Rfam assigns this 232-nucleotide RNA sequence from Ananas comosus to the family "RNase MRP". The source organism's lineage runs through Eukaryota, Embryophyta, Petrosaviidae, Bromelioideae and Ananas. The family has 66 seed sequences and 3,510 matches in Rfam 15.1. About the family: RNase MRP is an enzymatically active ribonucleoprotein with two distinct roles in eukaryotes. In mitochondria it plays a direct role in the initiation of mitochondrial DNA replication. In the nucleus it is involved in precursor rRNA processing, where it cleaves the internal transcribed spacer 1 between 18S and 5.8S rRNAs. Despite distinct functions, RNase MRP has been shown to be evolutionarily related to RNase P. Like eukaryotic RNase P, RNase MRP is not catalytically active without associated protein subunits.
[Rfam]
RNA sequence: GAACCAUGGGACGAAGUGAUCGGGUUUAUGCGUACCCUGGAAAGUCCCCGGGCCUGAGAUUCCGCAGAGAUGCGGCCGCGGAAAACGCGGGUUCACUUCGAACUCCAUCCCUCGGCUGAGACACGCGUGGAGCCCUCGGGAUGCGAGUCGAAGCUCCUAUGGCCGUCCAUCACAGUUAUUCACUUGAUCCAACCGUUGGAUUAACAGAACGGGGCUUACGAUCCCUAUGGUU
Numbered sequence: 001g002a003a004c005c006a007u008g009g010g011a012c013g014a015a016g017u018g019a020u021c022g023g024g025u026u027u028a029u030g031c032g033u034a035c036c037c038u039g040g041a042a043a044g045u046c047c048c049c050g051g052g053c054c055u056g057a058g059a060u061u062c063c064g065c066a067g068a069g070a071u072g073c074g075g076c077c078g079c080g081g082a083a084a085a086c087g088c089g090g091g092u093u094c095a096c097u098u099c100g101a102a103c104u105c106c107a108u109c110c111c112u113c114g115g116c117u118g119a120g121a122c123a124c125g126c127g128u129g130g131a132g133c134c135c136u137c138g139g140g141a142u143g144c145g146a147g148u149c150g151a152a153g154c155u156c157c158u159a160u161g162g163c164c165g166u167c168c169a170u171c172a173c174a175g176u177u178a179u180u181c182a183c184u185u186g187a188u189c190c191a192a193c194c195g196u197u198g199g200a201u202u203a204a205c206a207g208a209a210c211g212g213g214g215c216u217u218a219c220g221a222u223c224c225c226u227a228u229g230g231u232u
Base pairs, nucleotide, nucleotide: 002232003231004230005229006228007227008225009224010223011222014185015184016183017182018181019180022037023036024035025034027032042217043216044215046214047213048212049211063074064073065072066071076090077089078088079087092152093151094150097147098146099145100144103140104139105138114134115133116132123128187201188200189199190198191197192196